Annotation:
This 132-nucleotide RNA sequence from Hevea brasiliensis belongs to the Rfam family "Small nucleolar RNA snoR111". Taxonomically the source falls in Hevea (Eukaryota, Magnoliopsida, Gunneridae, Crotonoideae). A reference for the family is Marker et al. (2002), "Experimental RNomics: identification of 140 candidates for small non-messenger RNAs in the plant Arabidopsis thaliana", Curr Biol. Rfam classes the family as an H/ACA-box small nucleolar RNA.
RNA sequence: GUUAUGGAGAGGAGAGACGGAUUGGGAGUGUCUCUUAUCUUCGAAAGAACGGCAGGUAUAACAAAUCCAUGGCCGAGAUAUCGUUUCAGUCGUCAUUCUUCCAUUGACGAUUCGAUUGUUGCUCGUCCACAU
Number, nucleotide and partner (000 for none) at each position: 001g000002u000003u000004a000005u000006g042007g041008a040009g039010a038011g000012g000013a000014g034015a033016g032017a031018c030019g029020g000021a000022u000023u000024g000025g000026g000027a000028g000029u019030g018031u017032c016033u015034c014035u000036u000037a000038u010039c009040u008041u007042c006043g000044a000045a000046a000047g000048a000049a000050c000051g000052g000053c000054a000055g000056g000057u000058a000059u000060a000061a000062c000063a000064a000065a000066u000067c000068c000069a000070u000071g128072g127073c000074c125075g124076a123077g122078a000079u000080a116081u115082c114083g113084u000085u000086u000087c000088a000089g111090u110091c109092g108093u107094c106095a105096u000097u103098c000099u000100u000101c000102c000103a097104u000105u095106g094107a093108c092109g091110a090111u089112u000113c083114g082115a081116u080117u000118g000119u000120u000121g000122c077123u076124c075125g074126u000127c072128c071129a000130c000131a000132u000